[Rfam]
RNA sequence: GUUUGUCUGUUUGUGGUUGGUGUCCAGCACCGAGGACACAUGUUUGUCUGUGUGUGGAUGGCAUGUUCACCCUUGUAUGGAUGGAGUUCAGCACCAAGGACAGGUAUGUGUACCA
Numbered sequence: 001g002u003u004u005g006u007c008u009g010u011u012u013g014u015g016g017u018u019g020g021u022g023u024c025c026a027g028c029a030c031c032g033a034g035g036a037c038a039c040a041u042g043u044u045u046g047u048c049u050g051u052g053u054g055u056g057g058a059u060g061g062c063a064u065g066u067u068c069a070c071c072c073u074u075g076u077a078u079g080g081a082u083g084g085a086g087u088u089c090a091g092c093a094c095c096a097a098g099g100a101c102a103g104g105u106a107u108g109u110g111u112a113c114c115a
Stems, first nucleotide, its partner, number of pairs: 004106007018096006026088003030084003034076001036074001
The family of this 115-nucleotide sequence from Branchiostoma belcheri is "mir-2060 microRNA precursor family". The family's consensus secondary structure was predicted with RNAalifold. The source organism's lineage runs through Eukaryota, Bilateria, Cephalochordata, Leptocardii and Branchiostoma. A search with the family's covariance model found it, with a score of 58 bits. Its family is annotated with RISC complex and miRNA-mediated post-transcriptional gene silencing in the Gene Ontology.